The family of this 135-nucleotide sequence from Novibacillus thermophilus is "FMN riboswitch aptamer (RFN element)". NCBI's taxonomy places the organism under Bacteria, Bacillati, Caryophanales, Thermoactinomycetaceae, Novibacillus.
[Rfam]
RNA sequence: CGAAUCCUUCGGGGCAGGGUGAAAUUCCCGACCGGCGGUGAUGGUGUAGCGACACCUCAGCCCGUGACCCGCGCAAGCGGUGGACUCGGUGAAAUUCCGGGGCCGACAGUAUAGUCUGGAUGGGAGAAGGAUGAU
Numbered sequence: 001c002g003a004a005u006c007c008u009u010c011g012g013g014g015c016a017g018g019g020u021g022a023a024a025u026u027c028c029c030g031a032c033c034g035g036c037g038g039u040g041a042u043g044g045u046g047u048a049g050c051g052a053c054a055c056c057u058c059a060g061c062c063c064g065u066g067a068c069c070c071g072c073g074c075a076a077g078c079g080g081u082g083g084a085c086u087c088g089g090u091g092a093a094a095u096u097c098c099g100g101g102g103c104c105g106a107c108a109g110u111a112u113a114g115u116c117u118g119g120a121u122g123g124g125a126g127a128a129g130g131a132u133g134a135u
Stems, first nucleotide, its partner, number of pairs: 004132007017029003031115002033105002035065004060103002069080002085101005107118003